[Rfam]
Rfam assigns this 176-nucleotide RNA from Triplophysa rosa to the family "U2 spliceosomal RNA". By type it is a spliceosomal small nuclear RNA.
RNA sequence: AAAACUUUUCGAAAGAGAAAAAAUCUGUUCUUAUCAGUUUAAUAUCUGAUACGUUCUCUGUUCGGGGACCAUAUAUUAAAUUGAUUUUUGCAACAUGGAGAUGGUGUAGGGGCUUGCUUCGUCCACUCCACGCAUCGACCUGGUAUCGCAGUACAUCCAGAAACGGUGCACCAAUU
Numbered sequence: 001a002a003a004a005c006u007u008u009u010c011g012a013a014a015g016a017g018a019a020a021a022a023a024u025c026u027g028u029u030c031u032u033a034u035c036a037g038u039u040u041a042a043u044a045u046c047u048g049a050u051a052c053g054u055u056c057u058c059u060g061u062u063c064g065g066g067g068a069c070c071a072u073a074u075a076u077u078a079a080a081u082u083g084a085u086u087u088u089u090g091c092a093a094c095a096u097g098g099a100g101a102u103g104g105u106g107u108a109g110g111g112g113c114u115u116g117c118u119u120c121g122u123c124c125a126c127u128c129c130a131c132g133c134a135u136c137g138a139c140c141u142g143g144u145a146u147c148g149c150a151g152u153a154c155a156u157c158c159a160g161a162a163a164c165g166g167u168g169c170a171c172c173a174a175u176u
Stems, first nucleotide, its partner, number of pairs: 032051006053069006097129004103123002109120004132169006140160004

Source information: NCBI's taxonomy places the organism under Eukaryota, Craniata, Actinopterygii, Cypriniphysae, Triplophysa. Rfam's curators write: U2 is a small nuclear RNA (snRNA) component of the spliceosome (involved in pre-mRNA splicing). Complementary binding between U2 snRNA (in an area lying towards the 5' end but 3' to hairpin I) and the branchpoint sequence (BPS) of the intron results the bulging out of an unpaired adenosine, on the BPS, which initiates a nucleophilic attack at the intronic 5' splice site, thus starting the first of two transesterification reactions that mediate splicing. On this family, see Zwieb, Nucleic Acids Res 1997: "The uRNA database".